[Rfam]
RNA sequence: GAAGAAUUGAGAGGAGUUGACCCUAGUACGAGAGGACCGGGUUGAACAUACCACUGGUGGACCGGUUGUAGCGCCAGCUGCAGUGCCGGGUAGCUAAGUAUGGACGAGAUAACUGCUGAAAGCAUCUAAGCGGGAAACUCACCUCAAAACUAGUUCUUCCUAUAGAGCCGUGGUAGACCACCACGUUGAUAGGCUGGAUGUGGAAGCGCAGUAAUGCGUGCAGCUGACCAGUACUAAUAGCUCAAUUG
Numbered sequence: 001g002a003a004g005a006a007u008u009g010a011g012a013g014g015a016g017u018u019g020a021c022c023c024u025a026g027u028a029c030g031a032g033a034g035g036a037c038c039g040g041g042u043u044g045a046a047c048a049u050a051c052c053a054c055u056g057g058u059g060g061a062c063c064g065g066u067u068g069u070a071g072c073g074c075c076a077g078c079u080g081c082a083g084u085g086c087c088g089g090g091u092a093g094c095u096a097a098g099u100a101u102g103g104a105c106g107a108g109a110u111a112a113c114u115g116c117u118g119a120a121a122g123c124a125u126c127u128a129a130g131c132g133g134g135a136a137a138c139u140c141a142c143c144u145c146a147a148a149a150c151u152a153g154u155u156c157u158u159c160c161u162a163u164a165g166a167g168c169c170g171u172g173g174u175a176g177a178c179c180a181c182c183a184c185g186u187u188g189a190u191a192g193g194c195u196g197g198a199u200g201u202g203g204a205a206g207c208g209c210a211g212u213a214a215u216g217c218g219u220g221c222a223g224c225u226g227a228c229c230a231g232u233a234c235u236a237a238u239a240g241c242u243c244a245a246u247u248g
Base pairs, nucleotide, nucleotide: 001159002158003157004156005155006154007153008152011145012144013143014142017045018044019043020042021041022040023039047102048101049100050099051098055096056095057094062089063088064087065086066085067082068081069080070079071078072077106140107139108138113133114132115131116130117129163245165243166242167241168240169185170184171183172182173181190236191235192234193232194231195230196229197228200224206219207218208217209216210215
Background: A member of the RNA family "Bacterial large subunit ribosomal RNA" from Pelagibacterales bacterium SAG-MED04, 248 nucleotides of a longer RNA. NCBI's taxonomy places the organism under Bacteria, Pseudomonadati, Pseudomonadota, Alphaproteobacteria, Candidatus Pelagibacterales. It scores 2702 bits against the family's covariance model. Its family is annotated with ribosome and structural constituent of ribosome in the Gene Ontology.